[Rfam]
RNA sequence: UUAAUCGCGAGGUUUGGUCUGGAGGAAGCCGCUAGCAAAUUUGCGAGCUGAUGAAUAAGAACAUCAUAUGAGGCGUAGGCUAGAGGUGAGUUGGCACAAGACGACGAAACCACGUGAUCUAAUGGCCACCGUAAAUGAUGCAGCAGUGCAAAGAAAGUUCAUGUU
Number, nucleotide and partner (000 for none) at each position: 001u016002u000003a014004a013005u012006c011007g000008c000009g000010a000011g006012g005013u004014u003015u000016g001017g000018u000019c000020u000021g000022g000023a000024g000025g000026a000027a000028g165029c000030c163031g162032c000033u000034a000035g158036c157037a000038a000039a000040u152041u151042u150043g149044c148045g147046a000047g144048c143049u142050g141051a000052u000053g000054a000055a000056u000057a000058a000059g000060a000061a000062c140063a139064u138065c137066a136067u135068a000069u000070g000071a000072g000073g132074c131075g130076u000077a000078g127079g126080c125081u124082a123083g000084a000085g111086g110087u109088g000089a000090g105091u104092u103093g102094g000095c000096a000097c000098a000099a000100g000101a000102c093103g092104a091105c090106g000107a000108a000109a087110c086111c085112a000113c000114g000115u000116g000117a000118u000119c000120u000121a000122a000123u082124g081125g080126c079127c078128a000129c000130c075131g074132u073133a000134a000135a067136u066137g065138a064139u063140g062141c050142a049143g048144c047145a000146g000147u045148g044149c043150a042151a041152a040153g000154a000155a000156a000157g036158u035159u000160c000161a000162u031163g030164u000165u028